[Rfam]
RNA sequence: AUAUAUAGAGGAUAGUAAAUGUGCCGCUAUCGCCCUUGCAGAAAUGUAGGUAUGGAGAAGUGGAAAAAGGCAGACCCACCUAUAUAU
Dot-bracket structure: ((((((((..(((((......[[[[.))))).((((...........)))....)....((((.....]]]]...))))))))))))
Rfam assigns this 87-nucleotide sequence from Sneathia vaginalis to the family "skipping-rope RNA". A search with the family's covariance model found it, with a score of 53 bits. Pairs were carried over by alignment from the consensus structure, which is taken from published work.